[Rfam]
RNA: c-di-GMP-I riboswitch aptamer
RNA sequence: UAAUACUAAAGGCAAAAUUAAAGAAAUUUAAUGACGCAAAACUAAAGGAGCUAAGGUGAAAACUAUGCUAGCCAGUUACUAAU
Numbered sequence: 001u002a003a004u005a006c007u008a009a010a011g012g013c014a015a016a017a018u019u020a021a022a023g024a025a026a027u028u029u030a031a032u033g034a035c036g037c038a039a040a041a042c043u044a045a046a047g048g049a050g051c052u053a054a055g056g057u058g059a060a061a062a063c064u065a066u067g068c069u070a071g072c073c074a075g076u077u078a079c080u081a082a083u
Base pairs, nucleotide, nucleotide: 012037013036017032018031019030020029021028022027040077041076042075043074047073048072049069050068051067056063057062